[Rfam]
RNA sequence: ACACACGAGAGGAGGUGGUCCGAAGUUGUAUAGCAACAGGACUCGUGAGGUGGCUGUCCGAUAGGACCGCCUUUUGGUGACGCCUAGUCGUAAACCCAGGCAGCCACCCGACCCCCGGACUUCGAGCGCUGGUCCCGCUCGGCCUGCUCGCGCAGGAGUCGUCCGGGGGUUGUCCCGU
Numbered sequence: 001a002c003a004c005a006c007g008a009g010a011g012g013a014g015g016u017g018g019u020c021c022g023a024a025g026u027u028g029u030a031u032a033g034c035a036a037c038a039g040g041a042c043u044c045g046u047g048a049g050g051u052g053g054c055u056g057u058c059c060g061a062u063a064g065g066a067c068c069g070c071c072u073u074u075u076g077g078u079g080a081c082g083c084c085u086a087g088u089c090g091u092a093a094a095c096c097c098a099g100g101c102a103g104c105c106a107c108c109c110g111a112c113c114c115c116c117g118g119a120c121u122u123c124g125a126g127c128g129c130u131g132g133u134c135c136c137g138c139u140c141g142g143c144c145u146g147c148u149c150g151c152g153c154a155g156g157a158g159u160c161g162u163c164c165g166g167g168g169g170u171u172g173u174c175c176c177g178u
Stems, first nucleotide, its partner, number of pairs: 014058006059090004064085002068082002109172012123141006

The family of this 178-nucleotide RNA from Lentzea albidocapillata is "Actinobacteria sRNA Ms_IGR-5". The organism belongs to Lentzea, within Bacteria. The base pairs follow the family's consensus structure.